[Rfam]
RNA: Small nucleolar RNA Z247
RNA sequence: CCGAUUUCUGAUUUCGAUCUUGUUGCUUAUACACUUGCUGGUUUGCUUGAUAAUUAUGAAUCUUUUGUUGAUUCAAUUAUGACAAGAAUUGAAUCUAUUAAUAUUGAUGAACUUCAUGGCCUUCUUCUGAGCAAAGAAA
Numbered sequence: 001c002c003g004a005u006u007u008c009u010g011a012u013u014u015c016g017a018u019c020u021u022g023u024u025g026c027u028u029a030u031a032c033a034c035u036u037g038c039u040g041g042u043u044u045g046c047u048u049g050a051u052a053a054u055u056a057u058g059a060a061u062c063u064u065u066u067g068u069u070g071a072u073u074c075a076a077u078u079a080u081g082a083c084a085a086g087a088a089u090u091g092a093a094u095c096u097a098u099u100a101a102u103a104u105u106g107a108u109g110a111a112c113u114u115c116a117u118g119g120c121c122u123u124c125u126u127c128u129g130a131g132c133a134a135a136g137a138a139a
Base pairs, nucleotide, nucleotide: 005137006136007135088108089107090106091105092104